The record is a 26-nucleotide sequence, which matches "L25-Gammaproteobacteria ribosomal protein leader" in Rfam. Pairs were carried over by alignment from the consensus structure, which is taken from published work. For this family Rfam cites "Discovery of 20 novel ribosomal leader candidates in bacteria and archaea" (Eckert and Weinberg, BMC Microbiol, 2020). By type it is a cis-regulatory leader. The sequence is in the family's curated seed alignment.
[Rfam]
RNA sequence: AAAAUCGCUGGGUCGCCUGCGAUUUU
Numbered sequence: 001a002a003a004a005u006c007g008c009u010g011g012g013u014c015g016c017c018u019g020c021g022a023u024u025u026u
Stems, first nucleotide, its partner, number of pairs: 001026008010017002